Shown here is a 167-nucleotide RNA, a member of the family "IS605-orfB-II RNA". Rfam's curators put it in the seed alignment.
[Rfam]
Nucleotides: 167
Stems, first nucleotide, its partner, number of pairs: 006033011045062004053167004067109002071102001073100006084094001114131007136161004141156004
Number, partner (000 for none) and nucleotide at each position: 001000c002000a003000u004000g005000a006033u007032g008031a009030a010029a011028u012027a013026u014025a015024u016023a017000u018000a019000u020000u021000c022000u023016u024015a025014u026013a027012u028011a029010u030009u031008u032007u033006g034000g035000a036000u037000u038000g039000u040000a041000u042000a043000g044000u045062g046061g047060g048059u049000a050000g051000u052000c053167g054166c055165a056164g057000u058000c059048a060047c061046c062045u063000c064000a065000c066000a067109c068108c069000u070000g071102u072000u073100u074099g075098a076097u077096a078095u079000g080000a081000u082000u083000u084094u085000a086000a087000a088000u089000a090000a091000u092000c093000c094084g095078a096077u097076g098075u099074c100073a101000u102071a103000u104000a105000a106000a107000a108068g109067g110000a111000a112000a113000a114131c115130a116129a117128a118127u119126u120125c121000u122000u123000u124000a125120g126119a127118a128117u129116u130115u131114g132000g133000a134000a135000a136161a137160g138159u139158u140000u141156a142155a143154a144153a145000a146000u147000u148000u149000u150000a151000a152000g153144u154143u155142u156141u157000u158139a159138a160137c161136u162000a163000a164056c165055u166054g167053u